[Rfam]
RNA sequence: CGUUAAGAGAUUGUCUCUGUCUUUAUUUACUUUGUUGAAUAAAGGGAAUGCAAUUGAUGA
Numbered sequence: 001c002g003u004u005a006a007g008a009g010a011u012u013g014u015c016u017c018u019g020u021c022u023u024u025a026u027u028u029a030c031u032u033u034g035u036u037g038a039a040u041a042a043a044g045g046g047a048a049u050g051c052a053a054u055u056g057a058u059g060a
Stems, first nucleotide, its partner, number of pairs: 009055006020045004027039002029036001
Overview:
This 60-nucleotide RNA sequence belongs to the Rfam family "Transposase-1 RNA". It is one of the family's seed sequences.